[Rfam]
RNA: Small nucleolar RNA R30/Z108
RNA sequence: AGUCAUCACAAUGAGGAUACAAAAGCUCCCUCUUCUGAUUUAAAGUUGAGGAAAAUUGCUGGCAGAAUCGAACCAUAAAAUCUUAGCCAUCACUGAGUGA
Dot-bracket structure: .....((((.......................................................................................))))
Numbered sequence: 001a002g003u004c005a006u007c008a009c010a011a012u013g014a015g016g017a018u019a020c021a022a023a024a025g026c027u028c029c030c031u032c033u034u035c036u037g038a039u040u041u042a043a044a045g046u047u048g049a050g051g052a053a054a055a056u057u058g059c060u061g062g063c064a065g066a067a068u069c070g071a072a073c074c075a076u077a078a079a080a081u082c083u084u085a086g087c088c089a090u091c092a093c094u095g096a097g098u099g100a
Stems, first nucleotide, its partner, number of pairs: 006100004